[Rfam]
RNA sequence: AAGUUCUCUGAGGUAACACCGCGGAGCCACAAUCGAGUUCUCAGUGACUCUUUCAGCUCUGAGGAAGGUCCCUGGACCCGUGGCAGAAAGUGCCGUAGCUUAACCACUAUUAUCCUCCAUCAUCUCACGAAUAGAAAAGGAAGCUUCGGCUGAUUUUUCGUGAUACGGAUGCGAGAGUAUUGGUCCAAGCAAAGUAAUGUGUAAAAAUGGCGUUAGUCUUUCUCUUUCAGAGAAAAGAAUUACGCACAUUGAACCAAACAGGGCCUAUCAGAUCAGAAAACU
Numbered sequence: 001a002a003g004u005u006c007u008c009u010g011a012g013g014u015a016a017c018a019c020c021g022c023g024g025a026g027c028c029a030c031a032a033u034c035g036a037g038u039u040c041u042c043a044g045u046g047a048c049u050c051u052u053u054c055a056g057c058u059c060u061g062a063g064g065a066a067g068g069u070c071c072c073u074g075g076a077c078c079c080g081u082g083g084c085a086g087a088a089a090g091u092g093c094c095g096u097a098g099c100u101u102a103a104c105c106a107c108u109a110u111u112a113u114c115c116u117c118c119a120u121c122a123u124c125u126c127a128c129g130a131a132u133a134g135a136a137a138a139g140g141a142a143g144c145u146u147c148g149g150c151u152g153a154u155u156u157u158u159c160g161u162g163a164u165a166c167g168g169a170u171g172c173g174a175g176a177g178u179a180u181u182g183g184u185c186c187a188a189g190c191a192a193a194g195u196a197a198u199g200u201g202u203a204a205a206a207a208u209g210g211c212g213u214u215a216g217u218c219u220u221u222c223u224c225u226u227u228c229a230g231a232g233a234a235a236a237g238a239a240u241u242a243c244g245c246a247c248a249u250u251g252a253a254c255c256a257a258a259c260a261g262g263g264c265c266u267a268u269c270a271g272a273u274c275a276g277a278a279a280a281c282u
Stems, first nucleotide, its partner, number of pairs: 002282004007277005014204001016202004022061006035050005066266003070263004082094004098104001109178003118168001125163004133157004143150002206250004